[Rfam]
RNA sequence: GGAGGUAGGCCCUCCGGAGUCGCCCUGCGGGGGGAGGCUCCAAACCACCCACUGCUGCGUUAGUUGAGGCCUGUCGUGGUGAGCGAGUGGGAAAAGGCGCACGUGAUGUGUCAGGU
Numbered sequence: 001g002g003a004g005g006u007a008g009g010c011c012c013u014c015c016g017g018a019g020u021c022g023c024c025c026u027g028c029g030g031g032g033g034g035a036g037g038c039u040c041c042a043a044a045c046c047a048c049c050c051a052c053u054g055c056u057g058c059g060u061u062a063g064u065u066g067a068g069g070c071c072u073g074u075c076g077u078g079g080u081g082a083g084c085g086a087g088u089g090g091g092a093a094a095a096g097g098c099g100c101a102c103g104u105g106a107u108g109u110g111u112c113a114g115g116u
Stems, first nucleotide, its partner, number of pairs: 001015005016041006023034004046115001048091006054080002057077003061073003096112006
Group II catalytic intron D1-D4-2: a 116-nucleotide RNA from Actinoplanes sp. ATCC 53533.
The literature on the family includes a 2001 paper in EMBO J by Chu et al., "Control of branch-site choice by a group II intron".
The base pairs follow the family's consensus structure.
It scores 107 bits against the family's covariance model.